Rfam assigns this 139-nucleotide sequence from Papaver nudicaule to the family "small nucleolar RNA snoR134". Rfam 15.1 lists 792 matches to the family in 228 species. The literature on the family includes a 2009 paper in Nucleic Acids Res by Chen and Wu, "Mining small RNA sequencing data: a new approach to identify small nucleolar RNAs in Arabidopsis". The match comes from Rfam's covariance-model search (60 bits).

RNA sequence: CUGCUUGUUGCACCCCGAGCUUCUCUGAAAUAUACAAUGGUGAAAAAGCCCAAAUGCUCAUGUUAUAUUGUGUCUCAUAGUGUUGCAGGUUCGCUUAGUUCUUCAACAACUAAUUUGUGUCAAGAAAAUGGCCACAUUU
Number, nucleotide and partner (000 for none) at each position: 001c000002u000003g063004c062005u000006u060007g059008u000009u000010g057011c056012a000013c000014c000015c000016c000017g051018a000019g049020c048021u047022u045023c000024u043025c042026u000027g000028a000029a000030a000031u000032a000033u000034a000035c000036a000037a000038u000039g000040g000041u000042g025043a024044a000045a022046a000047a021048g020049c019050c000051c017052a000053a000054a000055u000056g011057c010058u000059c007060a006061u000062g004063u003064u000065a000066u000067a000068u000069u000070g000071u000072g000073u000074c000075u131076c130077a129078u126079a000080g000081u122082g121083u000084u119085g118086c117087a116088g115089g114090u000091u000092c000093g110094c000095u108096u000097a000098g000099u000100u000101c000102u000103u000104c000105a000106a000107c000108a095109a000110c093111u000112a000113a000114u089115u088116u087117g086118u085119g084120u000121c082122a081123a000124g000125a000126a078127a000128a000129u077130g076131g075132c000133c000134a000135c000136a000137u000138u000139u000